[Rfam]
RNA sequence: GGGGUCGACUUGGAUUUCGACGGGAGCUAAAUAGCCUCGGUUGCAUGUCGGCAUGGGCACGCCGUAAAACUACCCGCAAUCAAUAAACGCAAACAACGCAAACUACGCUCCCGCUUACGCCAAAGCUGCGUAAGUCUAACUCUUCGGAGCCGUCAAGCCUCACAAUGCUAACUAGUGGGGAUUUGGCGUAACUUUGUUAGCCGCUCUCUCGUCUCAUCCGAAGCGAGGGAAAAGAUUAGGAUUGCCCAUCACUUCCGCCUUGGGGGCUUGAGCAAAGCGAUGGAAAGAGCUUUCAACCCCAUCUAAGCAUGUAGAGACUGGGGUGGGUUUGGCUUUCGGACUGGGGUUCGAUUCCCCACGACUCCACCA
Numbered sequence: 001g002g003g004g005u006c007g008a009c010u011u012g013g014a015u016u017u018c019g020a021c022g023g024g025a026g027c028u029a030a031a032u033a034g035c036c037u038c039g040g041u042u043g044c045a046u047g048u049c050g051g052c053a054u055g056g057g058c059a060c061g062c063c064g065u066a067a068a069a070c071u072a073c074c075c076g077c078a079a080u081c082a083a084u085a086a087a088c089g090c091a092a093a094c095a096a097c098g099c100a101a102a103c104u105a106c107g108c109u110c111c112c113g114c115u116u117a118c119g120c121c122a123a124a125g126c127u128g129c130g131u132a133a134g135u136c137u138a139a140c141u142c143u144u145c146g147g148a149g150c151c152g153u154c155a156a157g158c159c160u161c162a163c164a165a166u167g168c169u170a171a172c173u174a175g176u177g178g179g180g181a182u183u184u185g186g187c188g189u190a191a192c193u194u195u196g197u198u199a200g201c202c203g204c205u206c207u208c209u210c211g212u213c214u215c216a217u218c219c220g221a222a223g224c225g226a227g228g229g230a231a232a233a234g235a236u237u238a239g240g241a242u243u244g245c246c247c248a249u250c251a252c253u254u255c256c257g258c259c260u261u262g263g264g265g266g267c268u269u270g271a272g273c274a275a276a277g278c279g280a281u282g283g284a285a286a287g288a289g290c291u292u293u294c295a296a297c298c299c300c301a302u303c304u305a306a307g308c309a310u311g312u313a314g315a316g317a318c319u320g321g322g323g324u325g326g327g328u329u330u331g332g333c334u335u336u337c338g339g340a341c342u343g344g345g346g347u348u349c350g351a352u353u354c355c356c357c358a359c360g361a362c363u364c365c366a367c368c369a
Stems, first nucleotide, its partner, number of pairs: 001365007021338010034324009044311005049064004054076004120147002123144003151188006159179004167201006205230008216242004221237001246283005252277003259272003263300003268295001342358005
Dot-bracket structure: (((((((.............((((((((((...(((((((((.(((((((((.[[[[...))))........]]]]...........................................((.(((................))).))...((((((..((((....[[[[[[...))))...)))))).......]]]]]]...((((((((...[[[[.[.))))))))......].]]]]...(((((.(((....(((.[[[..[.)))..))).)))))...........]..]]]......)))))....)))))))))....))))))))))...(((((.......))))))))))))....
A member of the RNA family "transfer-messenger RNA" from Wolinella succinogenes, 369 nucleotides long. Rfam's curators put it in the seed alignment. NCBI's taxonomy places the organism under Bacteria, Pseudomonadati, Campylobacterota, Campylobacterales, Wolinella. Bacterial tmRNA, also known as 10Sa RNA or SsrA, is named for its dual tRNA and mRNA-like properties. Its role is to liberate the mRNA from a stalled ribosome. To accomplish this part of the tmRNA is used as a reading frame that ends in a translation stop signal. The broken mRNA is replaced in the ribosome by the tmRNA and translation of the tmRNA leads to addition of a proteolysis tag to the incomplete protein enabling recognition by a protease. Clan: tRNA clan. The base pairs follow the family's consensus structure, which is taken from published work.